[Rfam]
RNA sequence: GUGCAAUGAUGCUUUUUCUAUUAAACACAUCAUUCUGAAAACAGAUGUGUAGAGAACUAAAUGACUGAGCACA
Numbered sequence: 001g002u003g004c005a006a007u008g009a010u011g012c013u014u015u016u017u018c019u020a021u022u023a024a025a026c027a028c029a030u031c032a033u034u035c036u037g038a039a040a041a042c043a044g045a046u047g048u049g050u051a052g053a054g055a056a057c058u059a060a061a062u063g064a065c066u067g068a069g070c071a072c073a
Stems, first nucleotide, its partner, number of pairs: 001072004
Background:
Rfam assigns this 73-nucleotide sequence from Chrysochloris asiatica to the family "Small nucleolar RNA SNORD63". The organism belongs to Chrysochloris, within Eukaryota. It scores 79 bits against the family's covariance model. The family's consensus secondary structure was predicted with PFOLD. Rfam describes the family as follows. snoRNA U63 is found in both humans and mice. On this family, see Galardi et al., Mol Cell Biol 2002: "Purified box C/D snoRNPs are able to reproduce site-specific 2'-O-methylation of target RNA in vitro".